[Rfam]
RNA: c-di-AMP riboswitch aptamer (ydaO/yuaA leader)
Organism: Paenibacillus pectinilyticus
RNA sequence: AACUAUUUGGAGCCGAGUCUGGUGCCACAAAAAGCACUAGUACGGGGGACGAUUUACUUGGGGUGAAUAUUUGCUUCGGCUUGGAGCAGACUAGGGAGAACCUUCUUCCCGAACCCGUCAACUAACCUCGGAGGCGCAAAUGAAGGAGGAU
Numbered sequence: 001a002a003c004u005a006u007u008u009g010g011a012g013c014c015g016a017g018u019c020u021g022g023u024g025c026c027a028c029a030a031a032a033a034g035c036a037c038u039a040g041u042a043c044g045g046g047g048g049a050c051g052a053u054u055u056a057c058u059u060g061g062g063g064u065g066a067a068u069a070u071u072u073g074c075u076u077c078g079g080c081u082u083g084g085a086g087c088a089g090a091c092u093a094g095g096g097a098g099a100a101c102c103u104u105c106u107u108c109c110c111g112a113a114c115c116c117g118u119c120a121a122c123u124a125a126c127c128u129c130g131g132a133g134g135c136g137c138a139a140a141u142g143a144a145g146g147a148g149g150a151u
Stems, first nucleotide, its partner, number of pairs: 012135003019040007043130005050060002061116003070090009094110004